[Rfam]
RNA: Glycine riboswitch aptamer
Organism: Euzebya pacifica
RNA sequence: CACGCUGAAGAGCUCGGCCAGUGCUGGCCGGCGCCGAAGGGGAAAGCCGUCCGCACCCGGGCGGUGAAGCUCUCAGGCCAGGAACAGCGGG
Numbered sequence: 001c002a003c004g005c006u007g008a009a010g011a012g013c014u015c016g017g018c019c020a021g022u023g024c025u026g027g028c029c030g031g032c033g034c035c036g037a038a039g040g041g042g043a044a045a046g047c048c049g050u051c052c053g054c055a056c057c058c059g060g061g062c063g064g065u066g067a068a069g070c071u072c073u074c075a076g077g078c079c080a081g082g083a084a085c086a087g088c089g090g091g
Stems, first nucleotide, its partner, number of pairs: 001091001003089005014031004033078003036074002040072003046065006
Dot-bracket structure: (.(((((......((((..........)))).(((((..(((...((((((........))))))....))))).)))......))))).)